Rfam assigns this 74-nucleotide sequence from a Lentisphaerota bacterium to the family "tRNA". A search with the family's covariance model found it, with a score of 64 bits. Gene Ontology term of the family: triplet codon-amino acid adaptor activity. The base pairs follow the family's consensus structure, which is taken from published work.

[Rfam]
RNA sequence: GGCGGCUUAGCUCAGUUGGUUAGAGCAGUGGAAUCAUAAUCCACGUGUCCGGGGUUCGAGUCCCUGAGCCGCUA
Numbered sequence: 001g002g003c004g005g006c007u008u009a010g011c012u013c014a015g016u017u018g019g020u021u022a023g024a025g026c027a028g029u030g031g032a033a034u035c036a037u038a039a040u041c042c043a044c045g046u047g048u049c050c051g052g053g054g055u056u057c058g059a060g061u062c063c064c065u066g067a068g069c070c071g072c073u074a
Base pairs, nucleotide, nucleotide: 001073002072003071004070005069006068007067010026011025012024013023028044029043030042031041032040050066051065052064053063054062